[Rfam]
RNA sequence: UGAGUGGGUCGGGCGGUCGCCCCGCACCUGCUUUGCACAGCGAAGCAGGUGCGGGGAGGAAAGUCCGAGCAGGAUAGGGCACGGUGGUGGCUAACGGCCACCCGGGGUAACCCGCGGGCAAGUGCCACAGAAAACACACAGCCGAUGGCCCUUAUUAGGGCACAGGUAAAGGUGAAAAGGUGCGGUAAGAGCGCACCACGUCGCUGGUGACAGCGUCGGUGAGGUAAACCCCACCGCCUGCAAGACCAAGUAAGCCGGCUGGAUUCUUACAACCGGUUAAGAAUCCUUUGCCCUGCCCGGGUAACCGCCGGCGGGUAGGUCGCUUGCCGUUUUCGGCAGAGCCAAUCGGUAACGGUUGGUCCAGUUAAAUGGCCGCCGUCCCGCACCUGCUUUGCAUGGCAAAGCAGGAAAUUCUAAUAUCUAAAUAUCGAAAUUCUAAACAAAUCCGAAAUUCGAAUGUUCGAAUUCUCGAAACGAGUUGUUUUGGUCAUUUGAAUUUUGGUUAUUUGGAAUUGUUUCGGAUUUCGUGCUUCGUGCUUGGGAUUUCUGCUUUUCUGUUCAAAGCAGGUGCGGGAUACAGAACUCGGCUUACAGACCCACUCAAUUA
Numbered sequence: 001u002g003a004g005u006g007g008g009u010c011g012g013g014c015g016g017u018c019g020c021c022c023c024g025c026a027c028c029u030g031c032u033u034u035g036c037a038c039a040g041c042g043a044a045g046c047a048g049g050u051g052c053g054g055g056g057a058g059g060a061a062a063g064u065c066c067g068a069g070c071a072g073g074a075u076a077g078g079g080c081a082c083g084g085u086g087g088u089g090g091c092u093a094a095c096g097g098c099c100a101c102c103c104g105g106g107g108u109a110a111c112c113c114g115c116g117g118g119c120a121a122g123u124g125c126c127a128c129a130g131a132a133a134a135c136a137c138a139c140a141g142c143c144g145a146u147g148g149c150c151c152u153u154a155u156u157a158g159g160g161c162a163c164a165g166g167u168a169a170a171g172g173u174g175a176a177a178a179g180g181u182g183c184g185g186u187a188a189g190a191g192c193g194c195a196c197c198a199c200g201u202c203g204c205u206g207g208u209g210a211c212a213g214c215g216u217c218g219g220u221g222a223g224g225u226a227a228a229c230c231c232c233a234c235c236g237c238c239u240g241c242a243a244g245a246c247c248a249a250g251u252a253a254g255c256c257g258g259c260u261g262g263a264u265u266c267u268u269a270c271a272a273c274c275g276g277u278u279a280a281g282a283a284u285c286c287u288u289u290g291c292c293c294u295g296c297c298c299g300g301g302u303a304a305c306c307g308c309c310g311g312c313g314g315g316u317a318g319g320u321c322g323c324u325u326g327c328c329g330u331u332u333u334c335g336g337c338a339g340a341g342c343c344a345a346u347c348g349g350u351a352a353c354g355g356u357u358g359g360u361c362c363a364g365u366u367a368a369a370u371g372g373c374c375g376c377c378g379u380c381c382c383g384c385a386c387c388u389g390c391u392u393u394g395c396a397u398g399g400c401a402a403a404g405c406a407g408g409a410a411a412u413u414c415u416a417a418u419a420u421c422u423a424a425a426u427a428u429c430g431a432a433a434u435u436c437u438a439a440a441c442a443a444a445u446c447c448g449a450a451a452u453u454c455g456a457a458u459g460u461u462c463g464a465a466u467u468c469u470c471g472a473a474a475c476g477a478g479u480u481g482u483u484u485u486g487g488u489c490a491u492u493u494g495a496a497u498u499u500u501g502g503u504u505a506u507u508u509g510g511a512a513u514u515g516u517u518u519c520g521g522a523u524u525u526c527g528u529g530c531u532u533c534g535u536g537c538u539u540g541g542g543a544u545u546u547c548u549g550c551u552u553u554u555c556u557g558u559u560c561a562a563a564g565c566a567g568g569u570g571c572g573g574g575a576u577a578c579a580g581a582a583c584u585c586g587g588c589u590u591a592c593a594g595a596c597c598c599a600c601u602c603a604a605u606u607a
Base pairs, nucleotide, nucleotide: 001603002602003601004600005599006598007597008596009595010594011592012377013376014375015374016373017372018371020056021055022054023053024052025051026050027049028048029047030046031045032044033043034042061590062589063588065587066586067585068584069583070240071239072238073237077298078297079296080295082236083235084234085233086232087101088100089099090098091097102116103114104113105112106111117231118230122229123228124225125224126223139171141167142166143165146162147161149159179197180196181195182194183193184192198220199218200217202215203214204213205212206211244321245320246319247318254312255311256310257309258308259307289303290302291301292300293299341360342359343358344357345356346355347354348353
About this RNA:
A member of the RNA family "Bacterial RNase P class A" from a Planctomycetota bacterium, 607 nucleotides long. It is annotated as a ribozyme. Its family is annotated with tRNA processing, ribonuclease P activity and dimeric ribonuclease P complex in the Gene Ontology. It scores 253 bits against the family's covariance model. The source organism's lineage runs through Bacteria, Pseudomonadati and Planctomycetota. Ribonuclease P (RNase P) is a ubiquitous endoribonuclease, found in archaea, bacteria and eukarya as well as chloroplasts and mitochondria.